[Rfam]
RNA sequence: CCCUGCCCAGAAAGGGCAGGGCAGAAGGAG
Numbered sequence: 001c002c003c004u005g006c007c008c009a010g011a012a013a014g015g016g017c018a019g020g021g022c023a024g025a026a027g028g029a030g
Base pairs, nucleotide, nucleotide: 001021002020003019004018005017006016007015008014